[Rfam]
RNA sequence: AGUGGUGAUAGAGGUGCGGACGUAAAAAGUACCACUGCUUAGGAUGAUGAAAUCCUAUGAUGCAGUGUGAAAGGUGCGGCCGCCGAAGCAGAAAAUCCUUCAUCAGAUUUUUCGCUGGUUCUGCAUUUAACAGAUGCAGGGCUGUCAGAACUUGAUUGUUCUGGAGAGCUAUCUCACCU
Numbered sequence: 001a002g003u004g005g006u007g008a009u010a011g012a013g014g015u016g017c018g019g020a021c022g023u024a025a026a027a028a029g030u031a032c033c034a035c036u037g038c039u040u041a042g043g044a045u046g047a048u049g050a051a052a053u054c055c056u057a058u059g060a061u062g063c064a065g066u067g068u069g070a071a072a073g074g075u076g077c078g079g080c081c082g083c084c085g086a087a088g089c090a091g092a093a094a095a096u097c098c099u100u101c102a103u104c105a106g107a108u109u110u111u112u113c114g115c116u117g118g119u120u121c122u123g124c125a126u127u128u129a130a131c132a133g134a135u136g137c138a139g140g141g142c143u144g145u146c147a148g149a150a151c152u153u154g155a156u157u158g159u160u161c162u163g164g165a166g167a168g169c170u171a172u173c174u175c176a177c178c179u
Base pairs, nucleotide, nucleotide: 007173008172009171010170011169016083017082018081019080021078022077023076024075033067034066035065036064037063038062087116088115089114091112092111093110094109095108096107097106117143118142119141120140121139122138123137124136125135126134127133145164146163147162148161149160150159151158
Lysine riboswitch aptamer: a 179-nucleotide sequence from Jeotgalibacillus alimentarius.